Small nucleolar RNA SNORA4: a 164-nucleotide RNA sequence from Rattus norvegicus. A search with the family's covariance model found it, with a score of 76 bits. It is annotated as an H/ACA-box small nucleolar RNA. Its Rfam clan is "SNORA4 clan".
[Rfam]
RNA sequence: CUACCAAAGAAUCUGUCUGGUGCCAAUCAUGGCGGCAAGAUGCUGGCAGCUAAAGAGAAAUGAAAUAAGCAUGGUAAUUCAGACAAUUUGGCAGAAUGAGGAAAACCACACUCCACAGGACUAUAUCAGUUAGUAUGGUUCAUUACUAUAUUGUGGCCUACAUU
Numbered sequence: 001c002u003a004c005c006a007a008a009g010a011a012u013c014u015g016u017c018u019g020g021u022g023c024c025a026a027u028c029a030u031g032g033c034g035g036c037a038a039g040a041u042g043c044u045g046g047c048a049g050c051u052a053a054a055g056a057g058a059a060a061u062g063a064a065a066u067a068a069g070c071a072u073g074g075u076a077a078u079u080c081a082g083a084c085a086a087u088u089u090g091g092c093a094g095a096a097u098g099a100g101g102a103a104a105a106c107c108a109c110a111c112u113c114c115a116c117a118g119g120a121c122u123a124u125a126u127c128a129g130u131u132a133g134u135a136u137g138g139u140u141c142a143u144u145a146c147u148a149u150a151u152u153g154u155g156g157c158c159u160a161c162a163u164u
Stems, first nucleotide, its partner, number of pairs: 004091005014085005022079001026075006103159001106156005117144001118141009